[Rfam]
RNA sequence: AGUGAGGAUAGAGGUGCGGAUGCAAAAAGUAUAUUCCAUGAAGGUGACAGCCUGGCGAGUGGGAUAGAAAGGUGUAUUUGCCGAAGUAAGUAAUUGCCUGUUAGCGAUUGCCUACUGGAUUUUCGUUGAAGAAGCGGAAAUUUGUCAGGAACUAUUACCUGGAGAGCUAUCCCGACG
Numbered sequence: 001a002g003u004g005a006g007g008a009u010a011g012a013g014g015u016g017c018g019g020a021u022g023c024a025a026a027a028a029g030u031a032u033a034u035u036c037c038a039u040g041a042a043g044g045u046g047a048c049a050g051c052c053u054g055g056c057g058a059g060u061g062g063g064a065u066a067g068a069a070a071g072g073u074g075u076a077u078u079u080g081c082c083g084a085a086g087u088a089a090g091u092a093a094u095u096g097c098c099u100g101u102u103a104g105c106g107a108u109u110g111c112c113u114a115c116u117g118g119a120u121u122u123u124c125g126u127u128g129a130a131g132a133a134g135c136g137g138a139a140a141u142u143u144g145u146c147a148g149g150a151a152c153u154a155u156u157a158c159c160u161g162g163a164g165a166g167c168u169a170u171c172c173c174g175a176c177g
Base pairs, nucleotide, nucleotide: 006172007171008170009169010168011167016081017080018079019078020077021076022075023074024073032066033065034064035063036062037061038060039059085116086115087114088113090111091110092109093108094107095106096105117143118142119141120140121139122138123137124136125135126134127133145162146161147160148159149158151156